[Rfam]
RNA sequence: CCUCUACUUCCCUCUACUCGGAUCGUCCGGCACGUUCCUGCCGGUGAAGGGACCCACCA
Numbered sequence: 001c002c003u004c005u006a007c008u009u010c011c012c013u014c015u016a017c018u019c020g021g022a023u024c025g026u027c028c029g030g031c032a033c034g035u036u037c038c039u040g041c042c043g044g045u046g047a048a049g050g051g052a053c054c055c056a057c058c059a
Stems, first nucleotide, its partner, number of pairs: 010051004015046002027044006
RNA: msiK RNA
Organism: Streptomyces mobaraensis